This 93-nucleotide RNA belongs to the Rfam family "mir-490 microRNA precursor family".
RNA sequence: UCAUGAGUUCAUGCUUCGACACCAUGGAUCUCCAGGUGGGUCAAGAUUAUAGAGAUACACCAACCUGGAGGACUCCAUGCUGUCGAGCUGUUC
Number, nucleotide and partner (000 for none) at each position: 001u000002c000003a000004u000005g000006a000007g000008u000009u000010c000011a000012u000013g000014c000015u000016u086017c085018g084019a083020c082021a081022c000023c079024a078025u077026g076027g075028a074029u071030c070031u069032c068033c067034a066035g065036g064037u063038g000039g061040g060041u059042c000043a000044a000045g000046a000047u000048u000049a000050u000051a000052g000053a000054g000055a000056u000057a000058c000059a041060c040061c039062a000063a037064c036065c035066u034067g033068g032069a031070g030071g029072a000073c000074u028075c027076c026077a025078u024079g023080c000081u021082g020083u019084c018085g017086a016087g000088c000089u000090g000091u000092u000093c000